The record is a 65-nucleotide RNA sequence from Myotis brandtii, which matches "mir-9242 microRNA precursor family" in Rfam. Lineage of the source: Eukaryota > Metazoa > Tetrapoda > Vespertilionidae > Myotis. Gene Ontology terms of the family: RISC complex and miRNA-mediated post-transcriptional gene silencing.
RNA sequence: GGCCUCCCUCUGUGGGGCGAUCAAUCUGGGGGUUCCUGCGAUUGAUCACCCCUCAGAGGGAGGCC
Numbered sequence: 001g002g003c004c005u006c007c008c009u010c011u012g013u014g015g016g017g018c019g020a021u022c023a024a025u026c027u028g029g030g031g032g033u034u035c036c037u038g039c040g041a042u043u044g045a046u047c048a049c050c051c052c053u054c055a056g057a058g059g060g061a062g063g064c065c
Stems, first nucleotide, its partner, number of pairs: 001065012014052004019047008027038004